[Rfam]
RNA: Plastid-ccsA-ndhD-2 3UTR RNA
RNA sequence: UCUUUGUGAGAACCAUGUGAAUCCAGUAGUGCGGGGAUUCGCAUGGUUCUCACUGGUU
Dot-bracket structure: .....(((((((((((((((((((..........))))))))))))))))))).....
Numbered sequence: 001u002c003u004u005u006g007u008g009a010g011a012a013c014c015a016u017g018u019g020a021a022u023c024c025a026g027u028a029g030u031g032c033g034g035g036g037a038u039u040c041g042c043a044u045g046g047u048u049c050u051c052a053c054u055g056g057u058u
Stems, first nucleotide, its partner, number of pairs: 006053019